[Rfam]
RNA: UnaL2 LINE 3' element
Organism: Coregonus sp. 'balchen'
RNA sequence: UCUAAUUGCUCCUGUAAGUCGCUCUGAAUAAGAGCGUCUACUAAAUGACAAAAA
Dot-bracket structure: ............((((...((((((.....))))))..))).)...........
Numbered sequence: 001u002c003u004a005a006u007u008g009c010u011c012c013u014g015u016a017a018g019u020c021g022c023u024c025u026g027a028a029u030a031a032g033a034g035c036g037u038c039u040a041c042u043a044a045a046u047g048a049c050a051a052a053a054a
Stems, first nucleotide, its partner, number of pairs: 013043001014041003020036006